[Rfam]
RNA sequence: UAGCCGGUGAGGGUCCGGCCGAGGUAAGAGCCGAGUCUCCUCGUAGCUGACAGGCAACUGGUGGGGAGAUCCUAUGGUUGAAGCCCUGUGACAAAGUAACUCCAUUAAGGAGUUCGAGCAAAACAGCAGACCGUAACAGAA
Numbered sequence: 001u002a003g004c005c006g007g008u009g010a011g012g013g014u015c016c017g018g019c020c021g022a023g024g025u026a027a028g029a030g031c032c033g034a035g036u037c038u039c040c041u042c043g044u045a046g047c048u049g050a051c052a053g054g055c056a057a058c059u060g061g062u063g064g065g066g067a068g069a070u071c072c073u074a075u076g077g078u079u080g081a082a083g084c085c086c087u088g089u090g091a092c093a094a095a096g097u098a099a100c101u102c103c104a105u106u107a108a109g110g111a112g113u114u115c116g117a118g119c120a121a122a123a124c125a126g127c128a129g130a131c132c133g134u135a136a137c138a139g140a141a
Stems, first nucleotide, its partner, number of pairs: 020043005050089005055080006064071002096115001099113005118134002

Description
Shown here is a 141-nucleotide sequence from Paenibacillus oceani, a member of the family "Group II catalytic intron D1-D4-4". Rfam describes the family as follows. Group II introns are found in rRNA, tRNA and mRNA of organelles in fungi, plants and protists, and also in mRNA in bacteria. Lineage of the source: Bacteria > Bacillati > Bacillota > Bacilli > Paenibacillus. The literature on the family includes a 2001 paper in Trends Genet by Bonen and Vogel, "The ins and outs of group II introns".